Notes: This 84-nucleotide sequence from Ruminiclostridium cellulolyticum belongs to the Rfam family "Glycine riboswitch aptamer". The organism belongs to Ruminiclostridium cellulolyticum, within Bacteria. Gene Ontology term of the family: glycine biosynthetic process. A search with the family's covariance model found it, with a score of 55 bits.

[Rfam]
RNA sequence: AUGAUUGUUGUGGGAGAGAUGUUUUAGAAUUCUAAAACUCACCGAAGGAGUAGCACUCUCAGGUAAAAAGACUACAACAGGACG
Dot-bracket structure: .....((((((((.......(((((((....)))))))..(((((..(((.....))))).))).......)))))))).....